A member of the RNA family "pan motif" from Evansella cellulosilytica, 91 nucleotides long.
RNA sequence: UGGACGGUAUCCGUUAGGAACUGUACUUUUAUAUUUCACAAAUGAAAAAUUGUAUUUCUGCCUUGAUCCAAAACUGGACUGGGACAGAGGG
Dot-bracket structure: .(((((((.((......))))))).))..............................((((((.(.(((......)))).))).)))....
Numbered sequence: 001u002g003g004a005c006g007g008u009a010u011c012c013g014u015u016a017g018g019a020a021c022u023g024u025a026c027u028u029u030u031a032u033a034u035u036u037c038a039c040a041a042a043u044g045a046a047a048a049a050u051u052g053u054a055u056u057u058c059u060g061c062c063u064u065g066a067u068c069c070a071a072a073a074c075u076g077g078a079c080u081g082g083g084a085c086a087g088a089g090g091g
Stems, first nucleotide, its partner, number of pairs: 002027002004024005010019002058087003061083003065079001067078003
The base pairs follow the family's consensus structure, which is taken from published work. It scores 68 bits against the family's covariance model.